[Rfam]
RNA sequence: UGUCCUAAGGCUAGUAUUACCUUAGGACACUUCUGUCGCAUGUCGCA
Numbered sequence: 001u002g003u004c005c006u007a008a009g010g011c012u013a014g015u016a017u018u019a020c021c022u023u024a025g026g027a028c029a030c031u032u033c034u035g036u037c038g039c040a041u042g043u044c045g046c047a
Base pairs, nucleotide, nucleotide: 001029002028003027004026005025006024007023008022009021010020
ssNA-helicase RNA: a 47-nucleotide sequence. Rfam's curators put it in the seed alignment. Rfam classes the family as a small RNA. The family's consensus secondary structure is taken from published work.